RNA sequence: GCCCGCGCAAGGAAGGACACGUAAAUCACGUGUUCUUGGGAGUUGACGACUCUCCGCCCCCA
Numbered sequence: 001g002c003c004c005g006c007g008c009a010a011g012g013a014a015g016g017a018c019a020c021g022u023a024a025a026u027c028a029c030g031u032g033u034u035c036u037u038g039g040g041a042g043u044u045g046a047c048g049a050c051u052c053u054c055c056g057c058c059c060c061c062a
Stems, first nucleotide, its partner, number of pairs: 005057003013037009038054006
Dot-bracket structure: ....(((.....(((((((((.......)))))))))((((((.....))))))))).....

Source information: Insect-Specific Flavivirus 3' UTR repeats Ra: a 62-nucleotide RNA sequence from Quang Binh virus. The organism belongs to Orthoflavivirus, within Viruses. On this family, see Hoshino et al., Virology 2007: "Genetic characterization of a new insect flavivirus isolated from Culex pipiens mosquito in Japan". Clan: Insect-Specific Flavivirus 3' UTR repeats Ra and Rb elements.